This 72-nucleotide sequence from Todus mexicanus belongs to the Rfam family "mir-137 microRNA precursor family".
RNA sequence: UUCGGUGACGGGUAUUCCCGGGCGGAUAAACACCGGCCCCGCUGUUAUUGCUUGGGAAUACGCGUAGCCGAG
Numbered sequence: 001u002u003c004g005g006u007g008a009c010g011g012g013u014a015u016u017c018c019c020g021g022g023c024g025g026a027u028a029a030a031c032a033c034c035g036g037c038c039c040c041g042c043u044g045u046u047a048u049u050g051c052u053u054g055g056g057a058a059u060a061c062g063c064g065u066a067g068c069c070g071a072g
Base pairs, nucleotide, nucleotide: 001072002071003070004069005068008065009064010063012061013060014059015058016057017056018055019054020053021052022051023050025049026048027047028046030045031044032043033041